[Rfam]
RNA sequence: UGAGCAUCAUUGACGAGUUGCUUCUUAUGUUAUCCUUGGACUUUGAUUGUUAUUAAAGAACAAAAUGGGGAAAAUUCAAUCUCAUAUGCUC
Numbered sequence: 001u002g003a004g005c006a007u008c009a010u011u012g013a014c015g016a017g018u019u020g021c022u023u024c025u026u027a028u029g030u031u032a033u034c035c036u037u038g039g040a041c042u043u044u045g046a047u048u049g050u051u052a053u054u055a056a057a058g059a060a061c062a063a064a065a066u067g068g069g070g071a072a073a074a075u076u077c078a079a080u081c082u083c084a085u086a087u088g089c090u091c
Stems, first nucleotide, its partner, number of pairs: 002091006